This 86-nucleotide RNA from Naegleria fowleri belongs to the Rfam family "Selenocysteine transfer RNA". Its Rfam clan is "tRNA clan".
[Rfam]
RNA sequence: GCAAGAAUGAUCUUCGGUGGUUCCGGGGUGCGGCCUUCAAAGCCGUAGGGAUGUAAAGUCCAGAGGUUCAAUUCCUCCUUUCUUGC
Number, nucleotide and partner (000 for none) at each position: 001g086002c085003a084004a083005g082006a081007a080008u000009g078010a000011u000012c028013u027014u026015c025016g024017g023018u000019g000020g000021u000022u000023c017024c016025g015026g014027g013028g012029u047030g046031c045032g044033g043034c042035c000036u000037u000038c000039a000040a000041a000042g034043c033044c032045g031046u030047a029048g000049g061050g060051a059052u058053g000054u000055a000056a000057a000058g052059u051060c050061c049062a000063g077064a076065g075066g074067u000068u000069c000070a000071a000072u000073u000074c066075c065076u064077c063078c009079u000080u007081u006082c005083u004084u003085g002086c001
The organism belongs to Naegleria, within Eukaryota.